[Rfam]
RNA sequence: AACGUUCAACCAUUAUGGUCGGAAGUAGGUUUGAAACCGAAGGAACGCGUC
Numbered sequence: 001a002a003c004g005u006u007c008a009a010c011c012a013u014u015a016u017g018g019u020c021g022g023a024a025g026u027a028g029g030u031u032u033g034a035a036a037c038c039g040a041a042g043g044a045a046c047g048c049g050u051c
Stems, first nucleotide, its partner, number of pairs: 003047005009019004022048001028038003
RNA: Glutamine riboswitch aptamer (glnA leader)